About this RNA:
The record is a 492-nucleotide part of an RNA from Cudoniella acicularis, which matches "Ascomycota telomerase RNA" in Rfam. Rfam 15.1 lists 475 matches to the family in 456 species. The source organism's lineage runs through Eukaryota, Fungi, Dikarya, Ascomycota and Cudoniella. The literature on the family includes a 2013 paper in Nucleic Acids Res by Qi et al., "The common ancestral core of vertebrate and fungal telomerase RNAs". It scores 138 bits against the family's covariance model.

RNA sequence: AUUCAAACGGAGAGAAGCCUUACUGUUGCGUUGGGGUAUCUGCUAUCCUUAGCUGGUCCAUUUCUCGUCCGGUUCACUGCUUGGAUUCGAAUCAUGCUAUUGCUGGUGGCAAUUUGAUACGGUACGAUACGGUUGCAGCCAUGUUACCAUAGGCUACGGGGCGCGAGAAAACAGAAGCAGCGGUGAGAUCCUCCCUUAGAAACCUACACGACUAACACCACCUUUCUACUUUUUCUGCGGGGGUAGGAGAAAGCAAAGCGUCCAGAGCGGGACCAUCUCGAGUUGGAGUCAGAGCUUAGUGCUUGUCUGAUCUGGGUAGCGCCGAGCCUUCUGCCUGCUUUCUCGGAUUCUGGUUUGAGAUUUUGGGGUUCGCUGUGUAGGGGAAGGGGGGUCUUGGGAGUGGUUAUUUAGAGACAGGCCUGGUGGUGGGUAGUCUCGGGUUGUCCCUUUGGUCUGUCAUGGUCCGGGACAACCCCUCCGAGUUUUUGGAGA
Numbered sequence: 001a002u003u004c005a006a007a008c009g010g011a012g013a014g015a016a017g018c019c020u021u022a023c024u025g026u027u028g029c030g031u032u033g034g035g036g037u038a039u040c041u042g043c044u045a046u047c048c049u050u051a052g053c054u055g056g057u058c059c060a061u062u063u064c065u066c067g068u069c070c071g072g073u074u075c076a077c078u079g080c081u082u083g084g085a086u087u088c089g090a091a092u093c094a095u096g097c098u099a100u101u102g103c104u105g106g107u108g109g110c111a112a113u114u115u116g117a118u119a120c121g122g123u124a125c126g127a128u129a130c131g132g133u134u135g136c137a138g139c140c141a142u143g144u145u146a147c148c149a150u151a152g153g154c155u156a157c158g159g160g161g162c163g164c165g166a167g168a169a170a171a172c173a174g175a176a177g178c179a180g181c182g183g184u185g186a187g188a189u190c191c192u193c194c195c196u197u198a199g200a201a202a203c204c205u206a207c208a209c210g211a212c213u214a215a216c217a218c219c220a221c222c223u224u225u226c227u228a229c230u231u232u233u234u235c236u237g238c239g240g241g242g243g244u245a246g247g248a249g250a251a252a253g254c255a256a257a258g259c260g261u262c263c264a265g266a267g268c269g270g271g272a273c274c275a276u277c278u279c280g281a282g283u284u285g286g287a288g289u290c291a292g293a294g295c296u297u298a299g300u301g302c303u304u305g306u307c308u309g310a311u312c313u314g315g316g317u318a319g320c321g322c323c324g325a326g327c328c329u330u331c332u333g334c335c336u337g338c339u340u341u342c343u344c345g346g347a348u349u350c351u352g353g354u355u356u357g358a359g360a361u362u363u364u365g366g367g368g369u370u371c372g373c374u375g376u377g378u379a380g381g382g383g384a385a386g387g388g389g390g391g392u393c394u395u396g397g398g399a400g401u402g403g404u405u406a407u408u409u410a411g412a413g414a415c416a417g418g419c420c421u422g423g424u425g426g427u428g429g430g431u432a433g434u435c436u437c438g439g440g441u442u443g444u445c446c447c448u449u450u451g452g453u454c455u456g457u458c459a460u461g462g463u464c465c466g467g468g469a470c471a472a473c474c475c476c477u478c479c480g481a482g483u484u485u486u487u488g489g490a491g492a
Stems, first nucleotide, its partner, number of pairs: 271290003274285002292304004